[Rfam]
RNA sequence: CCUUCGAUAGCUCAGCUGGUAGAGCGGAGGACUGUAGAUCCUUAGGUCGCUGGUUCGAUUCCGGCUCGAAGGA
Numbered sequence: 001c002c003u004u005c006g007a008u009a010g011c012u013c014a015g016c017u018g019g020u021a022g023a024g025c026g027g028a029g030g031a032c033u034g035u036a037g038a039u040c041c042u043u044a045g046g047u048c049g050c051u052g053g054u055u056c057g058a059u060u061c062c063g064g065c066u067c068g069a070a071g072g073a
Base pairs, nucleotide, nucleotide: 001072002071003070004069005068006067007066010025011024012023013022027043028042029041030040031039049065050064051063052062053061
RNA: tRNA